Source information
The record is a 74-nucleotide RNA sequence from Pseudonocardia sp., which matches "tRNA" in Rfam. It scores 48 bits against the family's covariance model. Pairs were carried over by alignment from the consensus structure, which is taken from published work. Taxonomically the source falls in Pseudonocardia (Bacteria, Actinomycetota, Actinomycetes, Pseudonocardiaceae). Rfam links the family to the GO term triplet codon-amino acid adaptor activity.
[Rfam]
RNA sequence: GCCCCCGUAGUCCAACCGGCAGAGACCAUGGAUUCAAAACCCAUCCAGUGUGCGUUCGAAUCGCACCGGGGGCA
Dot-bracket structure: (((((((..(((...........))).((((.........)))).....(((((.......)))))))))))).
Numbered sequence: 001g002c003c004c005c006c007g008u009a010g011u012c013c014a015a016c017c018g019g020c021a022g023a024g025a026c027c028a029u030g031g032a033u034u035c036a037a038a039a040c041c042c043a044u045c046c047a048g049u050g051u052g053c054g055u056u057c058g059a060a061u062c063g064c065a066c067c068g069g070g071g072g073c074a
Stems, first nucleotide, its partner, number of pairs: 001073007010026003028044004050066005